[Rfam]
RNA sequence: AGAGGUCACAAGUUUGAGGCCAUUAGCAGAAGUGCUUAUGGCAUGGCCUUGUCAGAUCCCAACAAAUCUGCAAGUUCUGCU
Numbered sequence: 001a002g003a004g005g006u007c008a009c010a011a012g013u014u015u016g017a018g019g020c021c022a023u024u025a026g027c028a029g030a031a032g033u034g035c036u037u038a039u040g041g042c043a044u045g046g047c048c049u050u051g052u053c054a055g056a057u058c059c060c061a062a063c064a065a066a067u068c069u070g071c072a073a074g075u076u077c078u079g080c081u
Stems, first nucleotide, its partner, number of pairs: 017049005025081007032044003053070005
RNA: Mammalian CPEB3 ribozyme